Source information
The family of this 124-nucleotide RNA from Zea mays is "mir-166 microRNA precursor family". A search with the family's covariance model found it, with a score of 68 bits. The source organism's lineage runs through Eukaryota, Liliopsida, Petrosaviidae, Tripsacinae and Zea. On this family, see Reinhart et al., Genes Dev 2002: "MicroRNAs in plants".

RNA sequence: UUUGAGUGAAAUGUUGUCUGGUUCAAGGUCUUGCUUUGCGAUUUGAGGAUGAUCCAUGCUUGCAUGUGUUGUUUUUUAUUCCUCGGAUAUGCAAGAUCUCGGACCAGGCUUCAUUCCCCUCAGG
Numbered sequence: 001u002u003u004g005a006g007u008g009a010a011a012u013g014u015u016g017u018c019u020g021g022u023u024c025a026a027g028g029u030c031u032u033g034c035u036u037u038g039c040g041a042u043u044u045g046a047g048g049a050u051g052a053u054c055c056a057u058g059c060u061u062g063c064a065u066g067u068g069u070u071g072u073u074u075u076u077u078a079u080u081c082c083u084c085g086g087a088u089a090u091g092c093a094a095g096a097u098c099u100c101g102g103a104c105c106a107g108g109c110u111u112c113a114u115u116c117c118c119c120u121c122a123g124g
Stems, first nucleotide, its partner, number of pairs: 001124006008117001010115004016109006024101001026099008